[Rfam]
RNA sequence: GAUUUCCUGAGAUGUGCGCUAAACUUACGAUAUUCAACCUACAUUACAUUAUCGGGAUUUGCAAUAUACUUAAAGAUGUCGGGCUUCAUUUAACUUUUAUAGGUAUCAGAAGAAGACAGACGUGAGUUGCGCUUAACCCACCUGCGAGGCGCAGGUUUUGAAUAUUUAAGUGAACGGCAUGUUGGGAACUAU
Numbered sequence: 001g002a003u004u005u006c007c008u009g010a011g012a013u014g015u016g017c018g019c020u021a022a023a024c025u026u027a028c029g030a031u032a033u034u035c036a037a038c039c040u041a042c043a044u045u046a047c048a049u050u051a052u053c054g055g056g057a058u059u060u061g062c063a064a065u066a067u068a069c070u071u072a073a074a075g076a077u078g079u080c081g082g083g084c085u086u087c088a089u090u091u092a093a094c095u096u097u098u099a100u101a102g103g104u105a106u107c108a109g110a111a112g113a114a115g116a117c118a119g120a121c122g123u124g125a126g127u128u129g130c131g132c133u134u135a136a137c138c139c140a141c142c143u144g145c146g147a148g149g150c151g152c153a154g155g156u157u158u159u160g161a162a163u164a165u166u167u168a169a170g171u172g173a174a175c176g177g178c179a180u181g182u183u184g185g186g187a188a189c190u191a192u
Stems, first nucleotide, its partner, number of pairs: 002190001004188007012180004017176002032163004036158002038155002054139003058135001061132002065129001068127005079116002084112004
RNA: 6S / SsrS RNA